[Rfam]
RNA sequence: GUUGAAGCUCCAUCUACAAAUGGAUAAGAUUUGGAUCGUAGUGUAUAUGAGUUUUUGAAAGUAAGGGAGCAAUAAUUAUUUUCUUGUUUUACCAAGAGGACGUUAUUGCUCCUUUA
Dot-bracket structure: ........(((((......)))))......................................(((((((((((((...(.(((((........))))).)..))))))))))))).
Numbered sequence: 001g002u003u004g005a006a007g008c009u010c011c012a013u014c015u016a017c018a019a020a021u022g023g024a025u026a027a028g029a030u031u032u033g034g035a036u037c038g039u040a041g042u043g044u045a046u047a048u049g050a051g052u053u054u055u056u057g058a059a060a061g062u063a064a065g066g067g068a069g070c071a072a073u074a075a076u077u078a079u080u081u082u083c084u085u086g087u088u089u090u091a092c093c094a095a096g097a098g099g100a101c102g103u104u105a106u107u108g109c110u111c112c113u114u115u116a
Stems, first nucleotide, its partner, number of pairs: 009024005063115013079100001081098005
A member of the RNA family "Plastid-psbA-1 3UTR RNA" from Hydrocera triflora, 116 nucleotides long. Pairs were carried over by alignment from the consensus structure, which was predicted with LocARNA. NCBI's taxonomy places the organism under Eukaryota, Viridiplantae, Euphyllophyta, asterids, Hydrocera. Rfam classes the family as a cis-regulatory element. Clan: Plastid-psbA 3UTR RNA clan. It is one of the family's seed sequences. Rfam describes the family as follows. Plastid psbA-1 is a non-coding RNA (ncRNA) present in plastids.